RNA: mir-7 microRNA precursor family
RNA sequence: UGGCCUGCUUCUGAUUGGAAGACUAGUGAUUUUGUUGUUCUGAUGUAAAAAAGCGACAACAAAUCACAGCCUACCAUCCAGCAGGGGCCC
Numbered sequence: 001u002g003g004c005c006u007g008c009u010u011c012u013g014a015u016u017g018g019a020a021g022a023c024u025a026g027u028g029a030u031u032u033u034g035u036u037g038u039u040c041u042g043a044u045g046u047a048a049a050a051a052a053g054c055g056a057c058a059a060c061a062a063a064u065c066a067c068a069g070c071c072u073a074c075c076a077u078c079c080a081g082c083a084g085g086g087g088c089c090c
Stems, first nucleotide, its partner, number of pairs: 002089005008084002011081003016076003020072002023069002026067007034060006